Rfam assigns this 78-nucleotide RNA from Handroanthus impetiginosus to the family "Small nucleolar RNA SNORD18". A search with the family's covariance model found it, with a score of 45 bits. It is annotated as a C/D-box small nucleolar RNA. Gene Ontology terms of the family: RNA processing and nucleolus. Lineage of the source: Eukaryota > Streptophyta > Euphyllophyta > Mesangiospermae > Handroanthus.
RNA sequence: GAGAUAUGAUGAAUACUUUAUUUGGUCCGUGUUUCUGAAUAAACUGUGACUGAUAAACUCUUACCAAUCUCUGAUCUC
Numbered sequence: 001g002a003g004a005u006a007u008g009a010u011g012a013a014u015a016c017u018u019u020a021u022u023u024g025g026u027c028c029g030u031g032u033u034u035c036u037g038a039a040u041a042a043a044c045u046g047u048g049a050c051u052g053a054u055a056a057a058c059u060c061u062u063a064c065c066a067a068u069c070u071c072u073g074a075u076c077u078c
Base pairs, nucleotide, nucleotide: 001078002077003076004075